[Rfam]
The record is a 75-nucleotide RNA sequence, which matches "emrB-Lactobacillus RNA" in Rfam.

RNA sequence: UACUUAGUAUAUUUUGAUAGUAUGCGGAUUAAUAUAACUAUAAUUAACUAUAAUUAAUAGUUAAAGAAAGGGUAG
Numbered sequence: 001u002a003c004u005u006a007g008u009a010u011a012u013u014u015u016g017a018u019a020g021u022a023u024g025c026g027g028a029u030u031a032a033u034a035u036a037a038c039u040a041u042a043a044u045u046a047a048c049u050a051u052a053a054u055u056a057a058u059a060g061u062u063a064a065a066g067a068a069a070g071g072g073u074a075g
Stems, first nucleotide, its partner, number of pairs: 002073004007025007035063007

Rfam classes the family as a small RNA. The family's consensus secondary structure is taken from published work.